[Rfam]
RNA sequence: CCUCCCGUGUCACCUCCCUGCACGGGACGCGUUUACGCGUUUCAAACCCGGCCUGCGUCGGGUUUUUUUUC
Numbered sequence: 001c002c003u004c005c006c007g008u009g010u011c012a013c014c015u016c017c018c019u020g021c022a023c024g025g026g027a028c029g030c031g032u033u034u035a036c037g038c039g040u041u042u043c044a045a046a047c048c049c050g051g052c053c054u055g056c057g058u059c060g061g062g063u064u065u066u067u068u069u070u071c
Stems, first nucleotide, its partner, number of pairs: 004026006027040005045064008
This 71-nucleotide sequence from Polaromonas naphthalenivorans belongs to the Rfam family "Burkholderia RNA 7 (anti-hemB)". The literature on the family includes a 2007 paper in Nucleic Acids Res by Weinberg et al., "Identification of 22 candidate structured RNAs in bacteria using the CMfinder comparative genomics pipeline". This RNA motif was identified by computational search in b-proteobacteria Burkholderia. Co-purified with Hfq, expression confirmed by Northern blot. Lineage of the source: Bacteria > Pseudomonadati > Pseudomonadota > Burkholderiales > Polaromonas naphthalenivorans. Pairs were carried over by alignment from the consensus structure, which is taken from published work. It is annotated as a small RNA. A search with the family's covariance model found it, with a score of 50 bits.